Rfam assigns this 210-nucleotide RNA from Pollutimonas nitritireducens to the family "Proteobacterial sRNA psRNA2". The organism belongs to Pollutimonas, within Bacteria. The literature on the family includes a 2010 paper in FEMS Microbiol Lett by Gvakharia et al., "Computational prediction and transcriptional analysis of sRNAs in Nitrosomonas europaea". Pairs were carried over by alignment from the consensus structure. A search with the family's covariance model found it, with a score of 97 bits. Rfam 15.1 lists 122 matches to the family in 36 species.
[Rfam]
RNA sequence: AGGUUACUCCUUGGCGCUUUCGCGCUCGUUGAUAAAAAUCCGCACCUCUAUCAAACCGGGUAACCUCAAUUUUGACAAGGCCCUACUGUCAGAUCAAAUUGAAACUACUACAGCUAAAAAUGUGAACACCAAGGGACUUUGUCGUACUUUAAUUACCAAGCGAUUUUGUCGCAUUCAUCAAUUACCAGGGGAAAUUGACGGAUCUAUUUG
Numbered sequence: 001a002g003g004u005u006a007c008u009c010c011u012u013g014g015c016g017c018u019u020u021c022g023c024g025c026u027c028g029u030u031g032a033u034a035a036a037a038a039u040c041c042g043c044a045c046c047u048c049u050a051u052c053a054a055a056c057c058g059g060g061u062a063a064c065c066u067c068a069a070u071u072u073u074g075a076c077a078a079g080g081c082c083c084u085a086c087u088g089u090c091a092g093a094u095c096a097a098a099u100u101g102a103a104a105c106u107a108c109u110a111c112a113g114c115u116a117a118a119a120a121u122g123u124g125a126a127c128a129c130c131a132a133g134g135g136a137c138u139u140u141g142u143c144g145u146a147c148u149u150u151a152a153u154u155a156c157c158a159a160g161c162g163a164u165u166u167u168g169u170c171g172c173a174u175u176c177a178u179c180a181a182u183u184a185c186c187a188g189g190g191g192a193a194a195u196u197g198a199c200g201g202a203u204c205u206a207u208u209u210g
Stems, first nucleotide, its partner, number of pairs: 001066007009059002014025004028056003031052004036047001073144003079137001082135002088105002092100003162204003166201005